The family of this 226-nucleotide RNA sequence from Lachnospiraceae bacterium M18-1 is "Group II catalytic intron D1-D4-6". Rfam's curators write: Group II introns are found in rRNA, tRNA and mRNA of organelles in fungi, plants and protists, and also in mRNA in bacteria. Pairs were carried over by alignment from the consensus structure. The match comes from Rfam's covariance-model search (137 bits). Gene Ontology term of the family: Group II intron splicing.

[Rfam]
RNA sequence: GGAAUCCCAUCUGGCAAGGUGCCAACCACACCACCAGUAGCGAACCUUGAGUCUGUAUUGGUAACAAUAUCAGACUAAGCGUAGGAAGUUAGGUAGUAGGGCUACAGGGCGAAUUUAGCACCGAAAUCACAGGUUCAGUGUGCCGACGUUGUUUACUGUGCGGAAGGCAAUAUGUGUGAAUAUCGUUAUGGUGAGAUUUCACACAACACUGCGGUGUUGGAACGCC
Numbered sequence: 001g002g003a004a005u006c007c008c009a010u011c012u013g014g015c016a017a018g019g020u021g022c023c024a025a026c027c028a029c030a031c032c033a034c035c036a037g038u039a040g041c042g043a044a045c046c047u048u049g050a051g052u053c054u055g056u057a058u059u060g061g062u063a064a065c066a067a068u069a070u071c072a073g074a075c076u077a078a079g080c081g082u083a084g085g086a087a088g089u090u091a092g093g094u095a096g097u098a099g100g101g102c103u104a105c106a107g108g109g110c111g112a113a114u115u116u117a118g119c120a121c122c123g124a125a126a127u128c129a130c131a132g133g134u135u136c137a138g139u140g141u142g143c144c145g146a147c148g149u150u151g152u153u154u155a156c157u158g159u160g161c162g163g164a165a166g167g168c169a170a171u172a173u174g175u176g177u178g179a180a181u182a183u184c185g186u187u188a189u190g191g192u193g194a195g196a197u198u199u200c201a202c203a204c205a206a207c208a209c210u211g212c213g214g215u216g217u218u219g220g221a222a223c224g225c226c
Base pairs, nucleotide, nucleotide: 011037012036013035014034018032019031021029025192026191040089041088045085046084047083048081049080050076051075052074053073054072055070056069057068058067059066060065115220118217119216120215121214122213123212136211137210138209139208140207141206142168143167144166147162148161149160173205174204175203176202177201178200180199182197183196184195